The record is a 74-nucleotide RNA sequence from Variibacter gotjawalensis, which matches "tRNA" in Rfam. From the family's description: Transfer RNA (tRNA) molecules are approximately 80 nucleotides in length. The family's RNA type in Rfam is transfer RNA. The family's consensus secondary structure is taken from published work.
RNA sequence: CGGGGUAUAGCGCAGUCCGGUAGCGCGGAAGUUUUGGGUACUUCAGGUCGCAGGUUCGAAUCCUGCUGCCCCGA
Number, nucleotide and partner (000 for none) at each position: 001c073002g072003g071004g070005g069006u068007a067008u000009a000010g026011c025012g024013c023014a000015g000016u000017c000018c000019g000020g000021u000022a000023g013024c012025g011026c010027g000028g044029a043030a042031g041032u040033u000034u000035u000036g000037g000038g000039u000040a032041c031042u030043u029044c028045a000046g000047g000048u000049c000050g066051c065052a064053g063054g062055u000056u000057c000058g000059a000060a000061u000062c054063c053064u052065g051066c050067u007068g006069c005070c004071c003072c002073g001074a000